[Rfam]
RNA sequence: UGCAGCCGGGUAAGUGCUACGCGACGAGCUCCUUGUAAAUCCCCCAGGUCUUGACCGAAGCAAGGGUAGCAGGUCGAGCAUGUGUGAUGUGGUGAGCUUACCCACCU
Numbered sequence: 001u002g003c004a005g006c007c008g009g010g011u012a013a014g015u016g017c018u019a020c021g022c023g024a025c026g027a028g029c030u031c032c033u034u035g036u037a038a039a040u041c042c043c044c045c046a047g048g049u050c051u052u053g054a055c056c057g058a059a060g061c062a063a064g065g066g067u068a069g070c071a072g073g074u075c076g077a078g079c080a081u082g083u084g085u086g087a088u089g090u091g092g093u094g095a096g097c098u099u100a101c102c103c104a105c106c107u
Base pairs, nucleotide, nucleotide: 008103009102010101011100012099013098014097015096017092018091019090020089021088022086023085024083025082
The record is a 107-nucleotide RNA sequence from Prevotella sp. CAG:485, which matches "Bacteroidales small SRP" in Rfam. Its Rfam clan is "SRP clan". The literature on the family includes a 2020 paper in Nat Commun by Ryan et al., "A high-resolution transcriptome map identifies small RNA regulation of metabolism in the gut microbe Bacteroides thetaiotaomicron". The source organism's lineage runs through Bacteria, Pseudomonadati, Bacteroidia, Prevotellaceae and Prevotella. The family's consensus secondary structure is taken from published work.